[Rfam]
RNA sequence: CCUCCUGUGAUGAUUUUUUUCCAAUGACUUUCGUUCUCCUGAGCUCGCUGAAGCCAACGGAUUCCAAUCUGAGGAGG
Numbered sequence: 001c002c003u004c005c006u007g008u009g010a011u012g013a014u015u016u017u018u019u020u021c022c023a024a025u026g027a028c029u030u031u032c033g034u035u036c037u038c039c040u041g042a043g044c045u046c047g048c049u050g051a052a053g054c055c056a057a058c059g060g061a062u063u064c065c066a067a068u069c070u071g072a073g074g075a076g077g
Base pairs, nucleotide, nucleotide: 001077002076003075005073
Dot-bracket structure: (((.(...................................................................).)))
The family of this 77-nucleotide RNA sequence from Rhadina sibilatrix is "Small nucleolar RNA SNORD59". The family's consensus secondary structure was predicted with ILM. The family's RNA type in Rfam is C/D-box small nucleolar RNA. On this family, see Galardi et al., Mol Cell Biol 2002: "Purified box C/D snoRNPs are able to reproduce site-specific 2'-O-methylation of target RNA in vitro". The family has 24 seed sequences and 1,355 matches in Rfam 15.1. Gene Ontology terms of the family: nucleolus and RNA processing. NCBI's taxonomy places the organism under Eukaryota, Eumetazoa, Neognathae, Neoaves, Rhadina. It scores 61 bits against the family's covariance model.